A member of the RNA family "L17-Actino-Proteobacteria ribosomal protein leader" from Streptomyces tsukubensis, 56 nucleotides long. Rfam's curators put it in the seed alignment. Lineage of the source: Bacteria > Actinomycetota > Actinomycetes > Streptomyces > Streptomyces tsukubensis.

[Rfam]
RNA sequence: CCCGCAGGCGGCCGCCUGUGGGGUCCUGACAUCGGUACCUGAUACGGCCGGUGCAG
Numbered sequence: 001c002c003c004g005c006a007g008g009c010g011g012c013c014g015c016c017u018g019u020g021g022g023g024u025c026c027u028g029a030c031a032u033c034g035g036u037a038c039c040u041g042a043u044a045c046g047g048c049c050g051g052u053g054c055a056g
Stems, first nucleotide, its partner, number of pairs: 001022009026056003030053007